[Rfam]
RNA: Cyano-1 RNA
Organism: Leptolyngbya sp. FACHB-16
RNA sequence: AGAGGUGUGAGGAGUACGAAAUGCAUAAACCUCUGGAGUCGAAACAAGGACAGACGCCCAGAGGUUUUUGCUAUAG
Numbered sequence: 001a002g003a004g005g006u007g008u009g010a011g012g013a014g015u016a017c018g019a020a021a022u023g024c025a026u027a028a029a030c031c032u033c034u035g036g037a038g039u040c041g042a043a044a045c046a047a048g049g050a051c052a053g054a055c056g057c058c059c060a061g062a063g064g065u066u067u068u069u070g071c072u073a074u075a076g
Stems, first nucleotide, its partner, number of pairs: 023071003027067001030064002035059002038055003
Dot-bracket structure: ......................(((.(..((...((.(((............)))..))...))..).))).....